[Rfam]
Rfam assigns this 116-nucleotide RNA from Neomoorella thermoacetica to the family "FMN riboswitch aptamer (RFN element)".
Lineage of the source: Bacteria > Bacillati > Clostridia > Neomoorellaceae > Neomoorella thermoacetica.
It is one of the family's seed sequences.
The family's consensus secondary structure is taken from published work.
RNA sequence: AACGUCCUUCGGGGUUAGGUGUAAUUCCUUACCGGCGGUAAAGCCCGCGAGCCGUUAUGGCAGACCCGGUGAAAUUCCGGGGCCGACAGUAAAAGUCUGGAAGGGAGAAGGAGGUU
Numbered sequence: 001a002a003c004g005u006c007c008u009u010c011g012g013g014g015u016u017a018g019g020u021g022u023a024a025u026u027c028c029u030u031a032c033c034g035g036c037g038g039u040a041a042a043g044c045c046c047g048c049g050a051g052c053c054g055u056u057a058u059g060g061c062a063g064a065c066c067c068g069g070u071g072a073a074a075u076u077c078c079g080g081g082g083c084c085g086a087c088a089g090u091a092a093a094a095g096u097c098u099g100g101a102a103g104g105g106a107g108a109a110g111g112a113g114g115u116u
Base pairs, nucleotide, nucleotide: 003114005112006111007110008109009108010107017029018028019027031096032095033085034084035048036047037046038045043083044082051061052060053059065081066080067079068078069077087099088098089097
Gene Ontology term of the family: FMN binding.